[Rfam]
RNA sequence: AGCACUUGAAUUUGUUUUUGUCUGUCUUUUAGACAAAGACACAGAAAAGUGCAAAAAAUAAAUCCUCUUUUGCAACCCAAAACUCAUUGUUUAGUAUGAGUUUUGAUACAUAUAAGAAGGAAUAUU
Numbered sequence: 001a002g003c004a005c006u007u008g009a010a011u012u013u014g015u016u017u018u019u020g021u022c023u024g025u026c027u028u029u030u031a032g033a034c035a036a037a038g039a040c041a042c043a044g045a046a047a048a049g050u051g052c053a054a055a056a057a058a059u060a061a062a063u064c065c066u067c068u069u070u071u072g073c074a075a076c077c078c079a080a081a082a083c084u085c086a087u088u089g090u091u092u093a094g095u096a097u098g099a100g101u102u103u104u105g106a107u108a109c110a111u112a113u114a115a116g117a118a119g120g121a122a123u124a125u126u
Stems, first nucleotide, its partner, number of pairs: 002052006011045001014040008062123002065120002068117005078105010

This 126-nucleotide RNA sequence from Tupaia belangeri belongs to the Rfam family "Small nucleolar RNA SNORA40". A reference for the family is Ofengand and Bakin (1997), "Mapping to nucleotide resolution of pseudouridine residues in large subunit ribosomal RNAs from representative eukaryotes, prokaryotes, archaebacteria, mitochondria and chloroplasts", J Mol Biol. Gene Ontology terms of the family: RNA processing and nucleolus. The organism belongs to Tupaia, within Eukaryota. From the family's description: The snoRNA ACA 40 belongs to the H/ACA family of snoRNAs and guides the pseudouridylation of 28S rRNA subunit at position U4565. NB This family has a high threshold value to exclude a large number of closely related sequences that do not appear to have conserved H and ACA boxes, and may be pseudogenes.